[Rfam]
RNA sequence: AGUCAAGAGUCUUGGCGCCAUUUCGGCGGGCGGAUUUCCUUUGCCCUGAGCAAGGCAAGGAUCAUG
Numbered sequence: 001a002g003u004c005a006a007g008a009g010u011c012u013u014g015g016c017g018c019c020a021u022u023u024c025g026g027c028g029g030g031c032g033g034a035u036u037u038c039c040u041u042u043g044c045c046c047u048g049a050g051c052a053a054g055g056c057a058a059g060g061a062u063c064a065u066g
Stems, first nucleotide, its partner, number of pairs: 009062005017056003021053002024050001028046001030044005
Dot-bracket structure: ........(((((...(((.((.(...(.(((((.....))))).)...).))))).)))))....
Rfam assigns this 66-nucleotide RNA from Microvirga tunisiensis to the family "S-element". This family represents a group of S-elements from p42d and related plasmids. The S-element has multiple functions and is believed to act as a negative regulator of repC transcription, be required for efficient replication and act as a translational enhancer of repC. Pairs were carried over by alignment from the consensus structure, which is taken from published work. Taxonomically the source falls in Microvirga (Bacteria, Alphaproteobacteria, Hyphomicrobiales, Methylobacteriaceae). By type it is a cis-regulatory element. A search with the family's covariance model found it, with a score of 56 bits. The literature on the family includes a 2004 paper in Mol Microbiol by Venkova-Canova et al., "Two discrete elements are required for the replication of a repABC plasmid: an antisense RNA and a stem-loop structure".